Small nucleolar RNA SNORA68: a 131-nucleotide sequence from Labrus bergylta. From the family's description: U68 is a member of the H/ACA class of small nucleolar RNAs (snoRNAs) which act as guides in the the modification of uridines to pseudouridines.

RNA sequence: UCUGCACCCAAACCCAAAGCUCAUACCUGUCCAUGGUAUGAUUAAGUCUGGUGUGCAAACAGAAAUCGGAUCCUUGUCGCCUUUCUCUGUCGCUGCAGUGCCUUUGAAAGUGAAUCCAAGGGUCCACAUGU
Number, nucleotide and partner (000 for none) at each position: 001u000002c000003u057004g056005c055006a054007c053008c000009c051010a000011a000012a000013c000014c000015c000016a000017a000018a000019g043020c000021u041022c040023a039024u038025a037026c036027c035028u000029g000030u000031c000032c000033a000034u000035g027036g026037u025038a024039u023040g022041a021042u000043u019044a000045a000046g000047u000048c000049u000050g000051g009052u000053g007054u006055g005056c004057a003058a000059a000060c000061a000062g000063a000064a000065a000066u000067c000068g125069g124070a123071u000072c122073c121074u120075u119076g000077u000078c000079g000080c000081c110082u109083u108084u107085c106086u000087c000088u000089g102090u000091c100092g000093c000094u000095g000096c000097a000098g000099u000100g091101c000102c089103u000104u000105u000106g085107a084108a083109a082110g081111u000112g000113a000114a000115u000116c000117c000118a000119a075120g074121g073122g072123u070124c069125c068126a000127c000128a000129u000130g000131u000

Lineage of the source: Eukaryota > Neoteleostei > Euacanthomorphacea > Percomorphaceae > Labrus. The family's RNA type in Rfam is H/ACA-box small nucleolar RNA. It scores 66 bits against the family's covariance model. The family's consensus secondary structure was predicted with PFOLD.